Annotation
The family of this 138-nucleotide sequence from Kryptolebias marmoratus is "Small nucleolar RNA SNORA57". Rfam 15.1 lists 1,736 matches to the family in 530 species. About the family: U99 belongs to the H/ACA class of snoRNAs which are thought to guide the sites of modification of uridines to pseudouridines, the target for this family is unknown. The family's consensus secondary structure was predicted with PFOLD. Gene Ontology terms of the family: RNA processing and nucleolus. It is annotated as an H/ACA-box small nucleolar RNA.
Nucleotides: 138
Base pairs, nucleotide, nucleotide: 001058002057003056004055005054015045016044017043018042019041020040022038024037025036026035070130071129072128073127074126089112090111091110092109093108094107096106
Number, partner (000 for none) and nucleotide at each position: 001058c002057c003056u004055c005054c006000a007000u008000u009000u010000c011000u012000u013000g014000g015045c016044a017043u018042g019041c020040a021000u022038g023000c024037a025036g026035u027000u028000g029000a030000u031000u032000g033000g034000u035026a036025c037024u038022c039000a040020u041019g042018u043017g044016u045015g046000u047000u048000a049000u050000g051000u052000a053000c054005g055004g056003a057002g058001g059000a060000a061000a062000a063000g064000u065000a066000a067000a068000g069000g070130c071129a072128g073127c074126g075000c076000u077000a078000u079000g080000u081000c082000u083000u084000c085000g086000g087000u088000g089112c090111c091110g092109g093108u094107g095000u096106g097000u098000u099000u100000u101000a102000u103000u104000g105000u106096c107094u108093g109092c110091c111090g112089g113000u114000u115000c116000u117000a118000u119000c120000c121000u122000c123000a124000a125000u126074c127073g128072c129071u130070g131000u132000u133000a134000c135000a136000a137000u138000g